[Rfam]
RNA sequence: GUGUAUAAAAGAGAGCUUCCUUCUGUCCACUCAUGGAUGGCGAUCAUGAGAUUUGAUUAGCUGCUGACUCAUUCAUCCACGUAGCAAGUGAAACAAAAGGAAGAAAAAAAUGAAUUUAAAUUUAUUGAUCACUUGGUAGAUGAAUGAAUGAUGCGGGAGGUAAGUUGGAUCUCAUGUUGUCUUUGCUUGGACUGAAGGGAGCUCCCUUGUAGAUCUUC
Numbered sequence: 001g002u003g004u005a006u007a008a009a010a011g012a013g014a015g016c017u018u019c020c021u022u023c024u025g026u027c028c029a030c031u032c033a034u035g036g037a038u039g040g041c042g043a044u045c046a047u048g049a050g051a052u053u054u055g056a057u058u059a060g061c062u063g064c065u066g067a068c069u070c071a072u073u074c075a076u077c078c079a080c081g082u083a084g085c086a087a088g089u090g091a092a093a094c095a096a097a098a099g100g101a102a103g104a105a106a107a108a109a110a111u112g113a114a115u116u117u118a119a120a121u122u123u124a125u126u127g128a129u130c131a132c133u134u135g136g137u138a139g140a141u142g143a144a145u146g147a148a149u150g151a152u153g154c155g156g157g158a159g160g161u162a163a164g165u166u167g168g169a170u171c172u173c174a175u176g177u178u179g180u181c182u183u184u185g186c187u188u189g190g191a192c193u194g195a196a197g198g199g200a201g202c203u204c205c206c207u208u209g210u211a212g213a214u215c216u217u218c
Stems, first nucleotide, its partner, number of pairs: 013204008023194001025192005036181001061159002064156003070150004078142001
The family of this 218-nucleotide RNA sequence from Zingiber officinale is "MIR159 microRNA precursor family".
The match comes from Rfam's covariance-model search (138 bits).
NCBI's taxonomy places the organism under Eukaryota, Spermatophyta, Mesangiospermae, Zingiberaceae, Zingiber.
Rfam 15.1 lists 3,649 matches to the family in 242 species.
Rfam links the family to the GO terms miRNA-mediated post-transcriptional gene silencing and RISC complex.